[Rfam]
RNA sequence: AUUAAAUCGCAAGCGCCAGAACCCUGCUCGAAUUUUAAAAAUUGUUUGAAAUUCGAGUCUUGGAUGAUUAGAUUACAGGUGACUUUUCAGGGUUGACGAGGAGGGGGUUAAUCGAGAUUUUCGGCGGGUUCCCCCCGGUCCGGCCGGACCGUCAAAGGCAUUACAAAACCACCGGGCAACCGUUGGGACAAAAAUGCCGGCGGCCGAAA
Numbered sequence: 001a002u003u004a005a006a007u008c009g010c011a012a013g014c015g016c017c018a019g020a021a022c023c024c025u026g027c028u029c030g031a032a033u034u035u036u037a038a039a040a041a042u043u044g045u046u047u048g049a050a051a052u053u054c055g056a057g058u059c060u061u062g063g064a065u066g067a068u069u070a071g072a073u074u075a076c077a078g079g080u081g082a083c084u085u086u087u088c089a090g091g092g093u094u095g096a097c098g099a100g101g102a103g104g105g106g107g108u109u110a111a112u113c114g115a116g117a118u119u120u121u122c123g124g125c126g127g128g129u130u131c132c133c134c135c136c137g138g139u140c141c142g143g144c145c146g147g148a149c150c151g152u153c154a155a156a157g158g159c160a161u162u163a164c165a166a167a168a169c170c171a172c173c174g175g176g177c178a179a180c181c182g183u184u185g186g187g188a189c190a191a192a193a194a195u196g197c198c199g200g201c202g203g204c205c206g207a208a209a
Base pairs, nucleotide, nucleotide: 020094021093022092023091024090025089026088103135104134105133106132107131112124113123114122115121136151137150138149139148140147141146157198158197159196160195161194162193169186170185171184173182174181175180
A member of the RNA family "glmS glucosamine-6-phosphate activated ribozyme aptamer" from Pelotomaculum isophthalicicum, 209 nucleotides long. The organism belongs to Pelotomaculum isophthalicicum, within Bacteria. On this family, see Hampel and Tinsley, Biochemistry 2006: "Evidence for preorganization of the glmS ribozyme ligand binding pocket". The base pairs follow the family's consensus structure, which is taken from published work.